[Rfam]
mir-2774 microRNA precursor family: a 67-nucleotide sequence from Bombyx mori.
The literature on the family includes a 2010 paper in BMC Genomics by Liu et al., "MicroRNAs of Bombyx mori identified by Solexa sequencing".
RNA sequence: AUAGCAUUUGGACGGUCGGUCUACCGAGCAAAUUCACCUGCUGGACGGAAGAUCUUCCCAUAGUCGA
Numbered sequence: 001a002u003a004g005c006a007u008u009u010g011g012a013c014g015g016u017c018g019g020u021c022u023a024c025c026g027a028g029c030a031a032a033u034u035c036a037c038c039u040g041c042u043g044g045a046c047g048g049a050a051g052a053u054c055u056u057c058c059c060a061u062a063g064u065c066g067a
Stems, first nucleotide, its partner, number of pairs: 004064002010058003015053003020049003025044001027042003
Overview:
Its family is annotated with RISC complex and miRNA-mediated post-transcriptional gene silencing in the Gene Ontology. Pairs were carried over by alignment from the consensus structure, which was predicted with RNAalifold. It scores 54 bits against the family's covariance model.